RNA sequence: AAUUCCGAGGAGCGCUGCGAGAGCUGUCAUUUUUAAUACGGCUUCCCAGGCUCGGAAAAUGUUUUAACGGCGCUCACCAUUA
Number, nucleotide and partner (000 for none) at each position: 001a000002a000003u057004u056005c055006c054007g053008a052009g000010g000011a000012g000013c000014g000015c000016u000017g000018c000019g000020a000021g045022a044023g042024c041025u040026g039027u000028c000029a000030u000031u000032u000033u000034u000035a000036a000037u000038a000039c026040g025041g024042c023043u000044u022045c021046c000047c000048a000049g000050g000051c000052u008053c007054g006055g005056a004057a003058a000059a000060u000061g000062u000063u000064u000065u000066a000067a000068c000069g000070g000071c000072g000073c000074u000075c000076a000077c000078c000079a000080u000081u000082a000
The record is an 82-nucleotide sequence from Methylotenera versatilis, which matches "SAH (S-adenosyl-L-homocysteine) riboswitch aptamer" in Rfam. The match comes from Rfam's covariance-model search (54 bits).